The family of this 102-nucleotide RNA from Cytobacillus depressus is "Purine riboswitch aptamer". The source organism's lineage runs through Bacteria, Bacillota, Caryophanales, Bacillaceae and Cytobacillus.
RNA sequence: UUUAUAUAGUUAUGCCUCACUCAUAUAAUGGCAGGGAUAUGGCUUGCAAGUUUCUACCGGACUACCGUAAAUAAUCCGACUAUGAGUAGCAAUGAUAUUGAU
Numbered sequence: 001u002u003u004a005u006a007u008a009g010u011u012a013u014g015c016c017u018c019a020c021u022c023a024u025a026u027a028a029u030g031g032c033a034g035g036g037a038u039a040u041g042g043c044u045u046g047c048a049a050g051u052u053u054c055u056a057c058c059g060g061a062c063u064a065c066c067g068u069a070a071a072u073a074a075u076c077c078g079a080c081u082a083u084g085a086g087u088a089g090c091a092a093u094g095a096u097a098u099u100g101a102u
Base pairs, nucleotide, nucleotide: 019087020086021085022084023083024082025081029049031047032046033045034044035043058078059077060076061075063073064072